[Rfam]
RNA: Small nucleolar RNA Z122
Organism: Striga asiatica
RNA sequence: UUUGGGAAAUGAUGAGAAUCUGCGAUUCAGAGGCUCUGCUCUGCUGAAUUUAUUUCAUUUGCACGUCAGUCUGAUCCCAAA
Numbered sequence: 001u002u003u004g005g006g007a008a009a010u011g012a013u014g015a016g017a018a019u020c021u022g023c024g025a026u027u028c029a030g031a032g033g034c035u036c037u038g039c040u041c042u043g044c045u046g047a048a049u050u051u052a053u054u055u056c057a058u059u060u061g062c063a064c065g066u067c068a069g070u071c072u073g074a075u076c077c078c079a080a081a
Stems, first nucleotide, its partner, number of pairs: 001081007